RNA: small Cajal body-specific RNA 18
RNA sequence: UGGUCAAUGAUGACAUGACCACCGCACAAUCUGAGUUCUAGGAACCAGGUGAUGGAGUGUGUGCUGAGAGCUGACUGUGAGACUU
Numbered sequence: 001u002g003g004u005c006a007a008u009g010a011u012g013a014c015a016u017g018a019c020c021a022c023c024g025c026a027c028a029a030u031c032u033g034a035g036u037u038c039u040a041g042g043a044a045c046c047a048g049g050u051g052a053u054g055g056a057g058u059g060u061g062u063g064c065u066g067a068g069a070g071c072u073g074a075c076u077g078u079g080a081g082a083c084u085u
Base pairs, nucleotide, nucleotide: 002084003083004082005081038048039047041045